[Rfam]
RNA sequence: CGGGCCGGGGCUGCGGGCGGUAAAAGACCAAAGAACCCUGGGAGAAAACCAACCAACCAAACCAAACCCCGCGUAGGUCACCCGACCGGGUGAAUGCGGUCGAUCCGGCUGGCGCGGCGGCGGCUCGGGCAUGCAGUCUCACCCCGAGGCAUAUGCGCCUCGCAAGACACAACCCCCAUACAUGCAACGGCCCCCGCCGGGACGGCAAUCCCAGUGCGAGGGCCUGACCAACGAGGAAGCAGACCCUUCCCU
Numbered sequence: 001c002g003g004g005c006c007g008g009g010g011c012u013g014c015g016g017g018c019g020g021u022a023a024a025a026g027a028c029c030a031a032a033g034a035a036c037c038c039u040g041g042g043a044g045a046a047a048a049c050c051a052a053c054c055a056a057c058c059a060a061a062c063c064a065a066a067c068c069c070c071g072c073g074u075a076g077g078u079c080a081c082c083c084g085a086c087c088g089g090g091u092g093a094a095u096g097c098g099g100u101c102g103a104u105c106c107g108g109c110u111g112g113c114g115c116g117g118c119g120g121c122g123g124c125u126c127g128g129g130c131a132u133g134c135a136g137u138c139u140c141a142c143c144c145c146g147a148g149g150c151a152u153a154u155g156c157g158c159c160u161c162g163c164a165a166g167a168c169a170c171a172a173c174c175c176c177c178a179u180a181c182a183u184g185c186a187a188c189g190g191c192c193c194c195c196g197c198c199g200g201g202a203c204g205g206c207a208a209u210c211c212c213a214g215u216g217c218g219a220g221g222g223c224c225u226g227a228c229c230a231a232c233g234a235g236g237a238a239g240c241a242g243a244c245c246c247u248u249c250c251c252u
Stems, first nucleotide, its partner, number of pairs: 007232001010229001017072003078093006108161001189224005195218003199212004235250005

Shown here is a 252-nucleotide RNA sequence from Streptomyces roseochromogenus, a member of the family "Streptomyces sRNA 4677".
A reference for the family is Hindra et al. (2014), "Complex intra-operonic dynamics mediated by a small RNA in Streptomyces coelicolor", PLoS One.
Rfam classes the family as a small RNA.
The family has 12 seed sequences and 563 matches in Rfam 15.1.
From the family's description: Located in the intergenic region between anti-sigma factor SCO4677 gene and a putative regulatory protein gene SCO4676. scr4677 expression requires the SCO4677 activity and scr4677 sRNA itself seem to affect the levels of the SCO4676-associated transcripts.
Pairs were carried over by alignment from the consensus structure.
It scores 93 bits against the family's covariance model.